[Rfam]
RNA sequence: GCAGACAAACUCUGUUCUUUGCUGUUCACUCCGGCAUGGAACUUUUUAUGUCUGCUAUAUAAAUAUGCAAAAUGUAACAUUCACUAGCUUUCUAAAAGGCUGGUGUCGGUAUGUUCUGCUACAUUACA
Numbered sequence: 001g002c003a004g005a006c007a008a009a010c011u012c013u014g015u016u017c018u019u020u021g022c023u024g025u026u027c028a029c030u031c032c033g034g035c036a037u038g039g040a041a042c043u044u045u046u047u048a049u050g051u052c053u054g055c056u057a058u059a060u061a062a063a064u065a066u067g068c069a070a071a072a073u074g075u076a077a078c079a080u081u082c083a084c085u086a087g088c089u090u091u092c093u094a095a096a097a098g099g100c101u102g103g104u105g106u107c108g109g110u111a112u113g114u115u116c117u118g119c120u121a122c123a124u125u126a127c128a
Stems, first nucleotide, its partner, number of pairs: 001055006014042005020036001022034003067119003071115003075111002078108001083104005
Small nucleolar RNA SNORA77: a 128-nucleotide RNA sequence from Liparis tanakae. For this family Rfam cites "A computational screen for mammalian pseudouridylation guide H/ACA RNAs" (Schattner et al., RNA, 2006). Taxonomically the source falls in Liparis (Eukaryota, Metazoa, Actinopterygii, Liparidae). The match comes from Rfam's covariance-model search (49 bits). Rfam 15.1 lists 843 matches to the family in 607 species. Rfam's curators write: ACA63 (SNORA77) is a member of the H/ACA class of snoRNAs that guide the sites of modification of uridines to pseudouridines. This snoRNA was identified by computational screening and its expression in mouse experimentally verified by Northern blot and primer extension analysis.